[Rfam]
About this RNA:
Rfam assigns this 96-nucleotide RNA sequence from Pelusios castaneus to the family "mir-146 microRNA precursor family". Taxonomically the source falls in Pelusios (Eukaryota, Deuterostomia, Euteleostomi, Testudines).
RNA sequence: UAGCAGUUCCCAGCUCUGAGAACUGAAUUCCAUGGACUGGUUUCAAUUCUGUAUCUUCGGUCCAUGGUACUCAUUUCUCUAGCUUGGCUGUAUCUA
Number, nucleotide and partner (000 for none) at each position: 001u000002a000003g000004c000005a000006g000007u000008u000009c087010c086011c000012a084013g083014c082015u000016c000017u000018g000019a078020g077021a076022a075023c000024u073025g072026a071027a000028u000029u000030c000031c000032a000033u000034g063035g062036a061037c060038u059039g058040g057041u000042u000043u000044c000045a000046a000047u000048u000049c000050u000051g000052u000053a000054u000055c000056u000057u040058c039059g038060g037061u036062c035063c034064a000065u000066g000067g000068u000069a000070c000071u026072c025073a024074u000075u022076u021077c020078u019079c000080u000081a000082g014083c013084u012085u000086g010087g009088c000089u000090g000091u000092a000093u000094c000095u000096a000